[Rfam]
RNA sequence: CCAGCCAAAACGCACACCCGGCGCAAGCCGGGGCCGCAAAGCCACGGAUCCCGGCCAUGCCCGUGUGGCCGGCGAUCGCCGGGUUGCCUGU
Numbered sequence: 001c002c003a004g005c006c007a008a009a010a011c012g013c014a015c016a017c018c019c020g021g022c023g024c025a026a027g028c029c030g031g032g033g034c035c036g037c038a039a040a041g042c043c044a045c046g047g048a049u050c051c052c053g054g055c056c057a058u059g060c061c062c063g064u065g066u067g068g069c070c071g072g073c074g075a076u077c078g079c080c081g082g083g084u085u086g087c088c089u090g091u
Stems, first nucleotide, its partner, number of pairs: 012037002017032006040085004045081003048076003051072009
The family of this 91-nucleotide sequence from Pseudoluteimonas lycopersici is "c-di-GMP-I riboswitch aptamer". Its family is annotated with cyclic-di-GMP binding in the Gene Ontology. Taxonomically the source falls in Pseudoluteimonas (Bacteria, Pseudomonadati, Pseudomonadota, Lysobacterales). It scores 54 bits against the family's covariance model.